[Rfam]
RNA: PyrR binding site
RNA sequence: AGCACCUUUAAAAUCAGUCCCGUGAGGCUGGCAAGGUGAGCGAUAGAGAACAGGUCUACCCGAUGCGGCUAGAGGCUGGAUAAGCCAUAGGCACGUGCGGAGGGAGAAGGACCGUUCUGCUCUGCUGUAUGCAAACCUUGCCCGCUGGGCAAGGUUUUUUUAUG
Numbered sequence: 001a002g003c004a005c006c007u008u009u010a011a012a013a014u015c016a017g018u019c020c021c022g023u024g025a026g027g028c029u030g031g032c033a034a035g036g037u038g039a040g041c042g043a044u045a046g047a048g049a050a051c052a053g054g055u056c057u058a059c060c061c062g063a064u065g066c067g068g069c070u071a072g073a074g075g076c077u078g079g080a081u082a083a084g085c086c087a088u089a090g091g092c093a094c095g096u097g098c099g100g101a102g103g104g105a106g107a108a109g110g111a112c113c114g115u116u117c118u119g120c121u122c123u124g125c126u127g128u129a130u131g132c133a134a135a136c137c138u139u140g141c142c143c144g145c146u147g148g149g150c151a152a153g154g155u156u157u158u159u160u161u162a163u164g
Base pairs, nucleotide, nucleotide: 003038004037005036006035007034008033014031015030016029017028018027019026041127042126044124045123046122047121048120050118131159133157134156135155136154137153138152139151140150141149142148143147